[Rfam]
RNA: Bacterial RNase P class A
RNA sequence: GCAGGCGGCCGGAUGAUCGCUGCCUCCCGCGGCUUGCUGUCGGGAGGGGGAGGAAAGUCCGAACUCCGCAGGGCAGUGUGCCGGAUAACGUCCGGGACCCAUGCGUCAAGGCAUGGGGACGGCCAGUGCAACAGAAAGCAAACCGCCUCAGGCUGUUGAGCGGGCUUCGCAAGAGGCACGUUCAUGCAAGCGGUCUGCGGUAAGGGUGAAAGGGUGGGGUAAGAGCCCACCGCGUUCGCAGUAAUGCAAACGGCACGGUAAACCCCACACGGAGCAAGACCAAAUAGGCAGGGAGACAGCCGACCCUCUUCAGUCGGCAGUCGCGCAACGGCCCGUUGCGCCCAGGUUGAAGGGCAAGAGCGUGCGCAAGCAUGCUGACCGGAACCUGCGGGUAGGUUGCUGGAGCGCCGCAGUAAUGCGUCGCCUAGAGGAAUGAUCGUCUAAAACAAAAUUCGGCUUACGGGCCGCCUGCACAG
Numbered sequence: 001g002c003a004g005g006c007g008g009c010c011g012g013a014u015g016a017u018c019g020c021u022g023c024c025u026c027c028c029g030c031g032g033c034u035u036g037c038u039g040u041c042g043g044g045a046g047g048g049g050g051a052g053g054a055a056a057g058u059c060c061g062a063a064c065u066c067c068g069c070a071g072g073g074c075a076g077u078g079u080g081c082c083g084g085a086u087a088a089c090g091u092c093c094g095g096g097a098c099c100c101a102u103g104c105g106u107c108a109a110g111g112c113a114u115g116g117g118g119a120c121g122g123c124c125a126g127u128g129c130a131a132c133a134g135a136a137a138g139c140a141a142a143c144c145g146c147c148u149c150a151g152g153c154u155g156u157u158g159a160g161c162g163g164g165c166u167u168c169g170c171a172a173g174a175g176g177c178a179c180g181u182u183c184a185u186g187c188a189a190g191c192g193g194u195c196u197g198c199g200g201u202a203a204g205g206g207u208g209a210a211a212g213g214g215u216g217g218g219g220u221a222a223g224a225g226c227c228c229a230c231c232g233c234g235u236u237c238g239c240a241g242u243a244a245u246g247c248a249a250a251c252g253g254c255a256c257g258g259u260a261a262a263c264c265c266c267a268c269a270c271g272g273a274g275c276a277a278g279a280c281c282a283a284a285u286a287g288g289c290a291g292g293g294a295g296a297c298a299g300c301c302g303a304c305c306c307u308c309u310u311c312a313g314u315c316g317g318c319a320g321u322c323g324c325g326c327a328a329c330g331g332c333c334c335g336u337u338g339c340g341c342c343c344a345g346g347u348u349g350a351a352g353g354g355c356a357a358g359a360g361c362g363u364g365c366g367c368a369a370g371c372a373u374g375c376u377g378a379c380c381g382g383a384a385c386c387u388g389c390g391g392g393u394a395g396g397u398u399g400c401u402g403g404a405g406c407g408c409c410g411c412a413g414u415a416a417u418g419c420g421u422c423g424c425c426u427a428g429a430g431g432a433a434u435g436a437u438c439g440u441c442u443a444a445a446a447c448a449a450a451a452u453u454c455g456g457c458u459u460a461c462g463g464g465c466c467g468c469c470u471g472c473a474c475a476g
Base pairs, nucleotide, nucleotide: 001472002471003470004469005468006467007466008465009464010463011461012441013440014439015438016437017436018435020050021049023047024046025045026044027043028042055459056458057457059456060455061454062453063452064274065273066272067271073321076270077269078268079267080266081095082094083093084092085091096120098117099116100115101114102113103112104111121265122264126263127262128259129258143205144204145201146200147199149197150196151195152194153193154192155191156190157189213231214230215229216228217227218226232254233252234251235250236249238247239246240245278398279397280396281395288389289388290387291386292385405424406423407422409420410419411418412417